The record is a 336-nucleotide part of an RNA from Brucella abortus, which matches "Bacterial large subunit ribosomal RNA" in Rfam. The literature on the family includes a 2002 paper in BMC Bioinformatics by Cannone et al., "The comparative RNA web (CRW) site: an online database of comparative sequence and structure information for ribosomal, intron, and other RNAs". The family's consensus secondary structure is taken from published work. The source organism's lineage runs through Bacteria, Pseudomonadati, Pseudomonadota, Brucella abortus and Brucella abortus bv. 2.
RNA sequence: UGAGAGAACUGCGUUGAAGGAACUCGGCAAAAUGCACGCGUAACUUCGGAAGAAGCGUGACCUCACUAUGGGCAACCAUAGGGGGGUGGCACAGACCAGGGGGUAGCGACUGUUUACCAAAAACACAGGGCUCUGCGAAGUCGCAAGACGACGUAUAGGGUCUGACGCCUGCCCGGUGCUGGAAGGUUAAGAGGAGAGGUGCAAGCCUUGAAUUGAAGCCCCAGUAAACGGCGGCCGUAACUAUAACGGUCCUAAGGUAGCGAAAUUCCUUGUCGGGUAAGUUCCGACCUGCACGAAUGGCGUAACGACUUCCCCGCUGUCUCCAACGCAGACUCA
Numbered sequence: 001u002g003a004g005a006g007a008a009c010u011g012c013g014u015u016g017a018a019g020g021a022a023c024u025c026g027g028c029a030a031a032a033u034g035c036a037c038g039c040g041u042a043a044c045u046u047c048g049g050a051a052g053a054a055g056c057g058u059g060a061c062c063u064c065a066c067u068a069u070g071g072g073c074a075a076c077c078a079u080a081g082g083g084g085g086g087u088g089g090c091a092c093a094g095a096c097c098a099g100g101g102g103g104u105a106g107c108g109a110c111u112g113u114u115u116a117c118c119a120a121a122a123a124c125a126c127a128g129g130g131c132u133c134u135g136c137g138a139a140g141u142c143g144c145a146a147g148a149c150g151a152c153g154u155a156u157a158g159g160g161u162c163u164g165a166c167g168c169c170u171g172c173c174c175g176g177u178g179c180u181g182g183a184a185g186g187u188u189a190a191g192a193g194g195a196g197a198g199g200u201g202c203a204a205g206c207c208u209u210g211a212a213u214u215g216a217a218g219c220c221c222c223a224g225u226a227a228a229c230g231g232c233g234g235c236c237g238u239a240a241c242u243a244u245a246a247c248g249g250u251c252c253u254a255a256g257g258u259a260g261c262g263a264a265a266u267u268c269c270u271u272g273u274c275g276g277g278u279a280a281g282u283u284c285c286g287a288c289c290u291g292c293a294c295g296a297a298u299g300g301c302g303u304a305a306c307g308a309c310u311u312c313c314c315c316g317c318u319g320u321c322u323c324c325a326a327c328g329c330a331g332a333c334u335c336a
Base pairs, nucleotide, nucleotide: 001336002335003334004333009331010330011329012328013327014326015325016324018322019321020320035059036058037057038056039055044049060087061086062085063084064083066081067080068079069078070077071076088092100315101314102313103312105310106309107307108306111125112124113123128163129162130161131160132159133158134157135156136153140149141148142147166302167301168300169299171232172231173230176229177228178225179224180223181222182221185220186219187218191214192213196209197208198207199206200205233251234250235249236248237247238246252256262289272288273287274286275285276284277283